[Rfam]
RNA sequence: CUUUGUUACUAGGGGUGUCUUGCAAAAGAGACUGAGAUGCGAAACCGCAGACCCUUUGAACCUGUAAGUUAGUGCUUGCGUAGGGAAGUUGACAAAAUUUUAG
Numbered sequence: 001c002u003u004u005g006u007u008a009c010u011a012g013g014g015g016u017g018u019c020u021u022g023c024a025a026a027a028g029a030g031a032c033u034g035a036g037a038u039g040c041g042a043a044a045c046c047g048c049a050g051a052c053c054c055u056u057u058g059a060a061c062c063u064g065u066a067a068g069u070u071a072g073u074g075c076u077u078g079c080g081u082a083g084g085g086a087a088g089u090u091g092a093c094a095a096a097a098u099u100u101u102a103g
Base pairs, nucleotide, nucleotide: 006091008089009088010087011055012054013053014052016049017032018031019030020029021028039048040047041046061084062083063082064081065078066077067076068075
Shown here is a 103-nucleotide RNA sequence from Vagococcus salmoninarum, a member of the family "TPP riboswitch aptamer (THI element)". The base pairs follow the family's consensus structure, which is taken from published work.